The family of this 112-nucleotide sequence from Pusillimonas sp. ANT_WB101 is "Glycine riboswitch aptamer".
Taxonomically the source falls in Pusillimonas (Bacteria, Pseudomonadati, Pseudomonadota, Betaproteobacteria).
RNA sequence: AGGCAGCAUUCUGGAGAGACUCGUUCCAUUGGCCCGCAGGCCUGGCAUCGGGCGCCGAAGGUGAACCCCCUAUAUGGGGUCAACUCUCAGGCAAAAGGACAGAAGGGCGGCG
Number, nucleotide and partner (000 for none) at each position: 001a000002g000003g000004c000005a000006g000007c106008a000009u104010u103011c102012u101013g100014g000015a000016g000017a000018g000019a000020c052021u051022c050023g049024u000025u000026c000027c000028a000029u000030u000031g000032g000033c000034c000035c000036g000037c000038a000039g000040g000041c000042c000043u000044g000045g000046c000047a000048u000049c023050g022051g021052g020053c000054g092055c091056c090057g088058a087059a000060g000061g086062u000063g084064a000065a000066c000067c079068c078069c000070c000071u000072a000073u000074a000075u000076g000077g000078g068079g067080u000081c000082a000083a000084c063085u000086c061087u058088c057089a000090g056091g055092c054093a000094a000095a000096a000097g000098g000099a000100c013101a012102g011103a010104a009105g000106g007107g000108c000109g000110g000111c000112g000